[Rfam]
RNA sequence: UCUUCAUUUCCUGUACUCUCUCGCCAGUCAGGGUUGAGAGAGAGCAUGUGAAAUGAAGAGA
Numbered sequence: 001u002c003u004u005c006a007u008u009u010c011c012u013g014u015a016c017u018c019u020c021u022c023g024c025c026a027g028u029c030a031g032g033g034u035u036g037a038g039a040g041a042g043a044g045c046a047u048g049u050g051a052a053a054u055g056a057a058g059a060g061a
Stems, first nucleotide, its partner, number of pairs: 001059007010050001012048003016044002019041004

Source information:
The family of this 61-nucleotide RNA from Pristionchus pacificus is "mir-8364 microRNA precursor family". It scores 71 bits against the family's covariance model. The organism belongs to Pristionchus, within Eukaryota.